Rfam assigns this 81-nucleotide sequence to the family "pemK RNA". Rfam classes the family as a cis-regulatory element. Rfam's curators put it in the seed alignment.
[Rfam]
RNA sequence: AUAAUGAUACUCCCGCAUUGGACGCCCUCAAAGCAUCGUGCGGCGCACCCAUCAGCAUGGGCCGGGGUGAGAUUCCCGUGA
Dot-bracket structure: ...........(((((((...................))))))((..((.........))..))(((.......))))...